Ribosomal S15 leader: a 119-nucleotide sequence from Vibrio sp. 99-8-1. The source organism's lineage runs through Bacteria, Gammaproteobacteria, Vibrionales, Vibrionaceae and Vibrio. Rfam links the family to the GO term regulation of translation, ncRNA-mediated. Pairs were carried over by alignment from the consensus structure, which is taken from published work. Rfam's curators write: The E. coli Ribosomal S15 gene 5' UTR can form two alternative structures. One that is a series of three hairpins, The other includes a pseudoknot. This structure causes translational regulation of the S15 protein. The alignment of this family contains only the final two hairpins which are conserved in other species, and also includes the complete region that forms the alternate structures. Its Rfam clan is "Ribosomal Protein S15 Leader clan". By type it is a cis-regulatory leader.

[Rfam]
RNA sequence: CGUGUCGGCUGAAUCAGAGAUUGGCGGCACAGUGUUAAACUAACUCUUAUUAGGAGAGAUUUAUGUCUCUGAAUGCAGAAACAAAAUCAGCUAUUGUAGCAGAAUAUGCACAAGGCGAA
Numbered sequence: 001c002g003u004g005u006c007g008g009c010u011g012a013a014u015c016a017g018a019g020a021u022u023g024g025c026g027g028c029a030c031a032g033u034g035u036u037a038a039a040c041u042a043a044c045u046c047u048u049a050u051u052a053g054g055a056g057a058g059a060u061u062u063a064u065g066u067c068u069c070u071g072a073a074u075g076c077a078g079a080a081a082c083a084a085a086a087u088c089a090g091c092u093a094u095u096g097u098a099g100c101a102g103a104a105u106a107u108g109c110a111c112a113a114g115g116c117g118a119a
Stems, first nucleotide, its partner, number of pairs: 008025005050073002053070004